The family of this 68-nucleotide RNA from Diaphorina citri is "mir-8/mir-141/mir-200 microRNA precursor family". It scores 68 bits against the family's covariance model. Pairs were carried over by alignment from the consensus structure, which was predicted with RNAalifold. The family has 164 seed sequences and 2,669 matches in Rfam 15.1. Lineage of the source: Eukaryota > Panarthropoda > Pancrustacea > Neoptera > Diaphorina. Gene Ontology terms of the family: miRNA-mediated post-transcriptional gene silencing and RISC complex. The literature on the family includes a 2001 paper in Science by Lagos-Quintana et al., "Identification of novel genes coding for small expressed RNAs".
RNA sequence: GUUUGCAUCUUACCGGGCAGCAUUAGAUUAAUUUGAAAGCUCUAAUACUGUCAGGUAAAGAUGUCGUC
Numbered sequence: 001g002u003u004u005g006c007a008u009c010u011u012a013c014c015g016g017g018c019a020g021c022a023u024u025a026g027a028u029u030a031a032u033u034u035g036a037a038a039g040c041u042c043u044a045a046u047a048c049u050g051u052c053a054g055g056u057a058a059a060g061a062u063g064u065c066g067u068c
Stems, first nucleotide, its partner, number of pairs: 003066001005064005010058005016052005022046006